[Rfam]
A member of the RNA family "Selenocysteine insertion sequence 1" from Cebus imitator, 62 nucleotides long. About the family: The incorporation of selenocysteine into a protein sequence is directed by an in-frame UGA codon (usually a stop codon) within the coding region of the mRNA. Selenoprotein mRNAs contain a conserved secondary structure in the 3' UTR that is required for the distinction of UGA stop from UGA selenocysteine. The selenocysteine insertion sequence (SECIS) is around 60 nt in length and adopts a hairpin structure which is sufficiently well-defined and conserved to act as a computational screen for selenoprotein genes. Rfam classes the family as a cis-regulatory element. NCBI's taxonomy places the organism under Eukaryota, Opisthokonta, Deuterostomia, Simiiformes, Cebus. A reference for the family is Walczak et al. (1996), "A novel RNA structural motif in the selenocysteine insertion element of eukaryotic selenoprotein mRNAs", RNA.
RNA sequence: UUUUCAUCUAUGAAGGUGUUUCCUCUAAACCUACAAGGAGGAACACCUGAUCCUCCAGAACA
Numbered sequence: 001u002u003u004u005c006a007u008c009u010a011u012g013a014a015g016g017u018g019u020u021u022c023c024u025c026u027a028a029a030c031c032u033a034c035a036a037g038g039a040g041g042a043a044c045a046c047c048u049g050a051u052c053c054u055c056c057a058g059a060a061c062a
Stems, first nucleotide, its partner, number of pairs: 001062001003060003015047008024038001030037001